[Rfam]
RNA sequence: UACCAAAAUUCUUAGUCAGGUUCCCAUUCUCGUUCCUUAUAGAACGCUUUUGUGAGCGGGGACUGUUACGGUUUUGGAAGAUCAAUUUUGCUUGCGGGCUGUUUAUAUCCUCGUUUUGAGGGUAUUGCAGUUUUUCAUGGCACAACCUUCGUUUUGAAGGUAUAGUCUUCGCAAGCAAUGGCGCCCUCGGCUCUGAGAUUUGCUUAAUAAGAGUCCAUCUUAUAUUCUGUGCAUUUAUCUCGCUUAAGAGGGCUUCACAUCC
Numbered sequence: 001u002a003c004c005a006a007a008a009u010u011c012u013u014a015g016u017c018a019g020g021u022u023c024c025c026a027u028u029c030u031c032g033u034u035c036c037u038u039a040u041a042g043a044a045c046g047c048u049u050u051u052g053u054g055a056g057c058g059g060g061g062a063c064u065g066u067u068a069c070g071g072u073u074u075u076g077g078a079a080g081a082u083c084a085a086u087u088u089u090g091c092u093u094g095c096g097g098g099c100u101g102u103u104u105a106u107a108u109c110c111u112c113g114u115u116u117u118g119a120g121g122g123u124a125u126u127g128c129a130g131u132u133u134u135u136c137a138u139g140g141c142a143c144a145a146c147c148u149u150c151g152u153u154u155u156g157a158a159g160g161u162a163u164a165g166u167c168u169u170c171g172c173a174a175g176c177a178a179u180g181g182c183g184c185c186c187u188c189g190g191c192u193c194u195g196a197g198a199u200u201u202g203c204u205u206a207a208u209a210a211g212a213g214u215c216c217a218u219c220u221u222a223u224a225u226u227c228u229g230u231g232c233a234u235u236u237a238u239c240u241c242g243c244u245u246a247a248g249a250g251g252g253c254u255u256c257a258c259a260u261c262c
Stems, first nucleotide, its partner, number of pairs: 003077005019064007027056002031046005088178006096133007106124007137169001139167003145161007180256002183253001185251004194242005201233003207223006
RNA: Small nucleolar RNA snR191